[Rfam]
RNA sequence: UGUGAGAGUGAUGAGUUGCACAUUAGUGUGGCCAUAGCAUCAGGUGAUGCAGGCUAUACUCAGUAAUAAACUGGUGACAAAGCCAUGUGCACAGGGGCCAUCUGACUCGCA
Numbered sequence: 001u002g003u004g005a006g007a008g009u010g011a012u013g014a015g016u017u018g019c020a021c022a023u024u025a026g027u028g029u030g031g032c033c034a035u036a037g038c039a040u041c042a043g044g045u046g047a048u049g050c051a052g053g054c055u056a057u058a059c060u061c062a063g064u065a066a067u068a069a070a071c072u073g074g075u076g077a078c079a080a081a082g083c084c085a086u087g088u089g090c091a092c093a094g095g096g097g098c099c100a101u102c103u104g105a106c107u108c109g110c111a
Stems, first nucleotide, its partner, number of pairs: 004110001006108003022064003026059004031054003037050005

The record is a 111-nucleotide sequence from Monodelphis domestica, which matches "Small nucleolar RNA SNORD67" in Rfam. The source organism's lineage runs through Eukaryota, Eumetazoa, Gnathostomata, Dipnotetrapodomorpha and Monodelphis. Gene Ontology terms of the family: nucleolus and RNA processing. About the family: snoRNA HBII-166 belongs to the C/D family of snoRNAs. The sequence is in the family's curated seed alignment. The base pairs follow the family's consensus structure.